[Rfam]
RNA sequence: CCAACUUUGUAGCAAGUUGUAGCCUAGGGAUAGUGCGAGUCUGGUAACGGACUGGUGUGAAGCAUCCUGACAAUGUACCCCCUGCAAAGGUGCUAUUCCUGCGUGAGCAGAAUAGUAGAUAUCGAUAAUGACAAUCGAUUGAGGGG
Numbered sequence: 001c002c003a004a005c006u007u008u009g010u011a012g013c014a015a016g017u018u019g020u021a022g023c024c025u026a027g028g029g030a031u032a033g034u035g036c037g038a039g040u041c042u043g044g045u046a047a048c049g050g051a052c053u054g055g056u057g058u059g060a061a062g063c064a065u066c067c068u069g070a071c072a073a074u075g076u077a078c079c080c081c082c083u084g085c086a087a088a089g090g091u092g093c094u095a096u097u098c099c100u101g102c103g104u105g106a107g108c109a110g111a112a113u114a115g116u117a118g119a120u121a122u123c124g125a126u127a128a129u130g131a132c133a134a135u136c137g138a139u140u141g142a143g144g145g146g
Base pairs, nucleotide, nucleotide: 002019003018004017005016006015007014029066030065031064033058034057035056036055038053039052040051041050042049043048081090082089083088091117092116093115094114101108102107121139122138123137124136125135126134
Description
The family of this 146-nucleotide RNA sequence from Photobacterium gaetbulicola is "Group II catalytic intron D1-D4-7". The literature on the family includes a 2001 paper in Trends Genet by Bonen and Vogel, "The ins and outs of group II introns". Group II introns are found in rRNA, tRNA and mRNA of organelles in fungi, plants and protists, and also in mRNA in bacteria. Its family is annotated with Group II intron splicing in the Gene Ontology. NCBI's taxonomy places the organism under Bacteria, Pseudomonadati, Pseudomonadota, Vibrionaceae, Photobacterium gaetbulicola.